[Rfam]
Notes: A member of the RNA family "Eukaryotic small subunit ribosomal RNA" from Cyanidioschyzon merolae, 590 nucleotides of a longer RNA.

RNA sequence: AGUCAUAUGCUUGUCUCAAAGAUUAAGCCAUGCAUGUCUAAGUAUAAACCAGUUUAUACGGUGAAACUGCGAAUGGCUCAUUAAAACAGUUAUCGUUUAUUUGAUGGUACCUCCUACAUGGAUAACCGUAGGAAUUCUACAGCUAAUACAUGCCCACACACCCGACUUUGGAAGGGUGGGAUUUAUCAGCUACAAAACCAAACCGCCUCGGCGGUCUCUGGUGAUUCAUGGUAACUGUCCGGAUCGCAUGUCCUUCGGGAUGGCGACAGAUCAUAUAAAUUUCUGCCCUAUCAACUUUCGAUGGUAGGAUAGAGGCCUACCAUGGUGGUAACGGGUAACGGGGAAUUAGGGUUCGAUUCCGGAGAGGGAGCCUGAGAAACGGCUACCACAUCCAAGGAAGGCAGCAGGCGCGCAAAUUACCCAAUCCUGACUCAGGGAGGUAGUGACAAGAAAUAACGAGACCGGGCUCUUCGAGUCCGGUAAUCGGAAUGAGUACAACUUAAAUAACUUAACGAGGAUCCAUUGGAGGGCAAGUCUGGUGCCAGCAGCCGCGGUAAUUCCAGCUCCAAUAGCGUAUAUUAAAGUUGUUG
Numbered sequence: 001a002g003u004c005a006u007a008u009g010c011u012u013g014u015c016u017c018a019a020a021g022a023u024u025a026a027g028c029c030a031u032g033c034a035u036g037u038c039u040a041a042g043u044a045u046a047a048a049c050c051a052g053u054u055u056a057u058a059c060g061g062u063g064a065a066a067c068u069g070c071g072a073a074u075g076g077c078u079c080a081u082u083a084a085a086a087c088a089g090u091u092a093u094c095g096u097u098u099a100u101u102u103g104a105u106g107g108u109a110c111c112u113c114c115u116a117c118a119u120g121g122a123u124a125a126c127c128g129u130a131g132g133a134a135u136u137c138u139a140c141a142g143c144u145a146a147u148a149c150a151u152g153c154c155c156a157c158a159c160a161c162c163c164g165a166c167u168u169u170g171g172a173a174g175g176g177u178g179g180g181a182u183u184u185a186u187c188a189g190c191u192a193c194a195a196a197a198c199c200a201a202a203c204c205g206c207c208u209c210g211g212c213g214g215u216c217u218c219u220g221g222u223g224a225u226u227c228a229u230g231g232u233a234a235c236u237g238u239c240c241g242g243a244u245c246g247c248a249u250g251u252c253c254u255u256c257g258g259g260a261u262g263g264c265g266a267c268a269g270a271u272c273a274u275a276u277a278a279a280u281u282u283c284u285g286c287c288c289u290a291u292c293a294a295c296u297u298u299c300g301a302u303g304g305u306a307g308g309a310u311a312g313a314g315g316c317c318u319a320c321c322a323u324g325g326u327g328g329u330a331a332c333g334g335g336u337a338a339c340g341g342g343g344a345a346u347u348a349g350g351g352u353u354c355g356a357u358u359c360c361g362g363a364g365a366g367g368g369a370g371c372c373u374g375a376g377a378a379a380c381g382g383c384u385a386c387c388a389c390a391u392c393c394a395a396g397g398a399a400g401g402c403a404g405c406a407g408g409c410g411c412g413c414a415a416a417u418u419a420c421c422c423a424a425u426c427c428u429g430a431c432u433c434a435g436g437g438a439g440g441u442a443g444u445g446a447c448a449a450g451a452a453a454u455a456a457c458g459a460g461a462c463c464g465g466g467c468u469c470u471u472c473g474a475g476u477c478c479g480g481u482a483a484u485c486g487g488a489a490u491g492a493g494u495a496c497a498a499c500u501u502a503a504a505u506a507a508c509u510u511a512a513c514g515a516g517g518a519u520c521c522a523u524u525g526g527a528g529g530g531c532a533a534g535u536c537u538g539g540u541g542c543c544a545g546c547a548g549c550c551g552c553g554g555u556a557a558u559u560c561c562a563g564c565u566c567c568a569a570u571a572g573c574g575u576a577u578a579u580u581a582a583a584g585u586u587g588u589u590g
Stems, first nucleotide, its partner, number of pairs: 001580003005577007014451003020444001021411001027409003031406003036070002041068003048062002077364003087285003092280002096278002102273004117152004126142001128140004159178005166171001183234006197222004204213003244266004249262004287335003294326003301323008339361004343354004366387002369384003389400001391398002417442001419441003425437005457486003461481009493513002495510001497509001523569006536563004545552002
The family has 90 seed sequences and 75,755 matches in Rfam 15.1. The match comes from Rfam's covariance-model search (1771 bits). On this family, see Cannone et al., BMC Bioinformatics 2002: "The comparative RNA web (CRW) site: an online database of comparative sequence and structure information for ribosomal, intron, and other RNAs". Its Rfam clan is "SSU clan".